[Rfam]
Background
Small nucleolar RNA SNORA84: a 134-nucleotide sequence from Tupaia belangeri.
RNA sequence: GCCCUGUCAUUGCUGGGGGCUGUUGUGCAGGUCCAGCUCUCCAAUGGUUACAGUGGGCAAGAUCAAUCCUGAGAUUUAUGCAUGGGGGGCUGUUUCUUCUCAGCAGCUGCCAUAGCCUGGUCACUGGUACAUGG
Numbered sequence: 001g002c003c004c005u006g007u008c009a010u011u012g013c014u015g016g017g018g019g020c021u022g023u024u025g026u027g028c029a030g031g032u033c034c035a036g037c038u039c040u041c042c043a044a045u046g047g048u049u050a051c052a053g054u055g056g057g058c059a060a061g062a063u064c065a066a067u068c069c070u071g072a073g074a075u076u077u078a079u080g081c082a083u084g085g086g087g088g089g090c091u092g093u094u095u096c097u098u099c100u101c102a103g104c105a106g107c108u109g110c111c112a113u114a115g116c117c118u119g120g121u122c123a124c125u126g127g128u129a130c131a132u133g134g
Base pairs, nucleotide, nucleotide: 001058002057003056004055007050010047011046012045014043015042016041017040019037020036021035022034069126071124073122074121075120076119080116081115082113083112084111085110088108089107090106091105092104093103094102
Rfam links the family to the GO terms RNA processing and nucleolus. The organism belongs to Tupaia belangeri, within Eukaryota.